[Rfam]
RNA: Glutamine-II riboswitch aptamer
Organism: Synechococcus sp. RS9916
RNA sequence: GAUCGUUCACUUCGUAUCGCACGAAGCGCAGUUCGCCUCAGGCCAUGGAACGGGGACCUGAG
Dot-bracket structure: ...[[[[[.(((((.......)))))..........((((((((...]]]]].)).))))))
Numbered sequence: 001g002a003u004c005g006u007u008c009a010c011u012u013c014g015u016a017u018c019g020c021a022c023g024a025a026g027c028g029c030a031g032u033u034c035g036c037c038u039c040a041g042g043c044c045a046u047g048g049a050a051c052g053g054g055g056a057c058c059u060g061a062g
Stems, first nucleotide, its partner, number of pairs: 004052005010026005037062006043055002